[Rfam]
RNA sequence: AGUUGUAGUCCAUCUGUUUUAAUAUUUUUACCCUUUUUGGGUUGAUGUUUUAUUUCUACACACAGCAGUGCAACAUCUGUCAGUACUUCUGGUGCCU
Numbered sequence: 001a002g003u004u005g006u007a008g009u010c011c012a013u014c015u016g017u018u019u020u021a022a023u024a025u026u027u028u029u030a031c032c033c034u035u036u037u038u039g040g041g042u043u044g045a046u047g048u049u050u051u052a053u054u055u056c057u058a059c060a061c062a063c064a065g066c067a068g069u070g071c072a073a074c075a076u077c078u079g080u081c082a083g084u085a086c087u088u089c090u091g092g093u094g095c096c097u
Stems, first nucleotide, its partner, number of pairs: 005056001007054003012046003016042003020039003059094003063091003067087005073080002
RNA: ES056 sRNA